[Rfam]
RNA: mir-702 microRNA precursor family
RNA sequence: GUGAGUGGGGUGGUUGGCAUGGGUUGCCCAGUCUGGGGACUCGACGCUGUGUCACAGCCUCCUGAUGUCCUCCUCACGCAUGCCCACCCUUUACCCCACUCC
Numbered sequence: 001g002u003g004a005g006u007g008g009g010g011u012g013g014u015u016g017g018c019a020u021g022g023g024u025u026g027c028c029c030a031g032u033c034u035g036g037g038g039a040c041u042c043g044a045c046g047c048u049g050u051g052u053c054a055c056a057g058c059c060u061c062c063u064g065a066u067g068u069c070c071u072c073c074u075c076a077c078g079c080a081u082g083c084c085c086a087c088c089c090u091u092u093a094c095c096c097c098a099c100u101c102c
Stems, first nucleotide, its partner, number of pairs: 003101009012088003016084006023077002035072006041065002043061002046058005